[Rfam]
RNA sequence: CACCUGCCCCAACGGCUUCCUGACGGGGUGGGAAAAAUCUAUCGGAGCA
Numbered sequence: 001c002a003c004c005u006g007c008c009c010c011a012a013c014g015g016c017u018u019c020c021u022g023a024c025g026g027g028g029u030g031g032g033a034a035a036a037a038u039c040u041a042u043c044g045g046a047g048c049a
Stems, first nucleotide, its partner, number of pairs: 004031007013022002015048003019045002
The record is a 49-nucleotide RNA sequence from Actibacterium mucosum, which matches "SAM/SAH riboswitch aptamer" in Rfam. It scores 54 bits against the family's covariance model. The organism belongs to Actibacterium mucosum, within Bacteria. The base pairs follow the family's consensus structure, which is taken from published work.